[Rfam]
The family of this 173-nucleotide RNA from Streptomyces griseicoloratus is "c-di-AMP riboswitch aptamer (ydaO/yuaA leader)".
RNA sequence: GCGCGGCCUCCGCCGAGUCCGGCGCGUCCGCACGGCGCCCGGAGCCGGGGACCCACCGAGACCUUGGGGUGAAUCGGCCCACAUCCCCUUCGGGGCGGGCCGUAGGGCAACCCUUCCGAGCCGUCCCUGCCCGAACCCGACAGCUAACCCGGUAGGCGGUUCAGGGAAGGAGU
Numbered sequence: 001g002c003g004c005g006g007c008c009u010c011c012g013c014c015g016a017g018u019c020c021g022g023c024g025c026g027u028c029c030g031c032a033c034g035g036c037g038c039c040c041g042g043a044g045c046c047g048g049g050g051a052c053c054c055a056c057c058g059a060g061a062c063c064u065u066g067g068g069g070u071g072a073a074u075c076g077g078c079c080c081a082c083a084u085c086c087c088c089u090u091c092g093g094g095g096c097g098g099g100c101c102g103u104a105g106g107g108c109a110a111c112c113c114u115u116c117c118g119a120g121c122c123g124u125c126c127c128u129g130c131c132c133g134a135a136c137c138c139g140a141c142a143g144c145u146a147a148c149c150c151g152g153u154a155g156g157c158g159g160u161u162c163a164g165g166g167a168a169g170g171a172g173u
Stems, first nucleotide, its partner, number of pairs: 011158004018043005044153006054066002067138003075102006105132004

A search with the family's covariance model found it, with a score of 67 bits.